About this RNA: Rfam assigns this 360-nucleotide part of an RNA from Reinekea forsetii to the family "Bacterial large subunit ribosomal RNA". Its family is annotated with structural constituent of ribosome and ribosome in the Gene Ontology. A search with the family's covariance model found it, with a score of 2870 bits. Lineage of the source: Bacteria > Pseudomonadati > Gammaproteobacteria > Oceanospirillales > Reinekea.

RNA sequence: UGAGAGAACUCGGGUGAAGGAACUAGGCAAAAUGGUGCCGUAACUUCGGGAGAAGGCACGCCCAGGCUGGUGAUGAGACUUGCUCUCUGAGCUGACUUGGGCCGAAGAUACCAGGCCCCUGCGACUGUUUACUUAAAACACAGCACUCUGCAAACACGAAAGUGGACGUAUAGGGUGUGACACCUGCCCGGUGCCGGAAGGUUAAUUGAUGGGGUUAGCGUAAGCGAAGCUCUUGAUCGAAGCCCCGGUAAACGGCGGCCGUAACUAUAACGGUCCUAAGGUAGCGAAAUUCCUUGUCGGGUAAGUUCCGACCUGCACGAAUGGUGUAACGAUGGGGGCGCUGUCUCCACCCGAGACUCA
Numbered sequence: 001u002g003a004g005a006g007a008a009c010u011c012g013g014g015u016g017a018a019g020g021a022a023c024u025a026g027g028c029a030a031a032a033u034g035g036u037g038c039c040g041u042a043a044c045u046u047c048g049g050g051a052g053a054a055g056g057c058a059c060g061c062c063c064a065g066g067c068u069g070g071u072g073a074u075g076a077g078a079c080u081u082g083c084u085c086u087c088u089g090a091g092c093u094g095a096c097u098u099g100g101g102c103c104g105a106a107g108a109u110a111c112c113a114g115g116c117c118c119c120u121g122c123g124a125c126u127g128u129u130u131a132c133u134u135a136a137a138a139c140a141c142a143g144c145a146c147u148c149u150g151c152a153a154a155c156a157c158g159a160a161a162g163u164g165g166a167c168g169u170a171u172a173g174g175g176u177g178u179g180a181c182a183c184c185u186g187c188c189c190g191g192u193g194c195c196g197g198a199a200g201g202u203u204a205a206u207u208g209a210u211g212g213g214g215u216u217a218g219c220g221u222a223a224g225c226g227a228a229g230c231u232c233u234u235g236a237u238c239g240a241a242g243c244c245c246c247g248g249u250a251a252a253c254g255g256c257g258g259c260c261g262u263a264a265c266u267a268u269a270a271c272g273g274u275c276c277u278a279a280g281g282u283a284g285c286g287a288a289a290u291u292c293c294u295u296g297u298c299g300g301g302u303a304a305g306u307u308c309c310g311a312c313c314u315g316c317a318c319g320a321a322u323g324g325u326g327u328a329a330c331g332a333u334g335g336g337g338g339c340g341c342u343g344u345c346u347c348c349a350c351c352c353g354a355g356a357c358u359c360a
Stems, first nucleotide, its partner, number of pairs: 001360004009355008018346003035059005044049001060102006103107001115339007122331002126140003143178008151168001155164003181326004186256003191253002193249005200244003211233005218225002257275006276280001286313001296312006